[Rfam]
A member of the RNA family "Group II catalytic intron D1-D4-3" from Bacillus aquiflavi, 172 nucleotides long. Taxonomically the source falls in Bacillus (Bacteria, Bacillati, Bacillota, Bacillaceae). For this family Rfam cites "The ins and outs of group II introns" (Bonen and Vogel, Trends Genet, 2001). A search with the family's covariance model found it, with a score of 150 bits. Gene Ontology term of the family: Group II intron splicing.

RNA sequence: UCCACGGUAACGUGGAAUCUGAAGGAAGCUCGAGGCAAACCUUCGGUCUGACGAACAGAAAUCAUAUAAGAGGCAACGUAUGAGGAUAAGACUGCAAAAGAAGUCGAAGUCCCAUAGCUACUGUAUCAUACGGUGUAUAUAUGGCAGAUAGAUGAAGGGAAAGAGUUCGCAC
Numbered sequence: 001u002c003c004a005c006g007g008u009a010a011c012g013u014g015g016a017a018u019c020u021g022a023a024g025g026a027a028g029c030u031c032g033a034g035g036c037a038a039a040c041c042u043u044c045g046g047u048c049u050g051a052c053g054a055a056c057a058g059a060a061a062u063c064a065u066a067u068a069a070g071a072g073g074c075a076a077c078g079u080a081u082g083a084g085g086a087u088a089a090g091a092c093u094g095c096a097a098a099a100g101a102a103g104u105c106g107a108a109g110u111c112c113c114a115u116a117g118c119u120a121c122u123g124u125a126u127c128a129u130a131c132g133g134u135g136u137a138u139a140u141a142u143g144g145c146a147g148a149u150a151g152a153u154g155a156a157g158g159g160a161a162a163g164a165g166u167u168c169g170c171a172c
Base pairs, nucleotide, nucleotide: 001016002015003014004013005012006011028172031169032168036163040158041157042156043155044154045153046149047148048147049146050145062144063143064142065141066140067139073136074135075134077132078131079130080129081128082127083126084112085111086110087109090105091104092103093102